[Rfam]
RNA sequence: AGUGGUUUUUGGGUGAUGCACCCCGGAACUGAGCUCUCUCCUCUCUGGUUCUGAGUGCAUCACCCGAGAACCGCA
Numbered sequence: 001a002g003u004g005g006u007u008u009u010u011g012g013g014u015g016a017u018g019c020a021c022c023c024c025g026g027a028a029c030u031g032a033g034c035u036c037u038c039u040c041c042u043c044u045c046u047g048g049u050u051c052u053g054a055g056u057g058c059a060u061c062a063c064c065c066g067a068g069a070a071c072c073g074c075a
Stems, first nucleotide, its partner, number of pairs: 002074002005071013019057003023053001025052007033044001
The family of this 75-nucleotide sequence from Myotis myotis is "mir-9223 microRNA precursor family". The family's consensus secondary structure was predicted with RNAalifold. NCBI's taxonomy places the organism under Eukaryota, Bilateria, Gnathostomata, Chiroptera, Myotis. A search with the family's covariance model found it, with a score of 69 bits.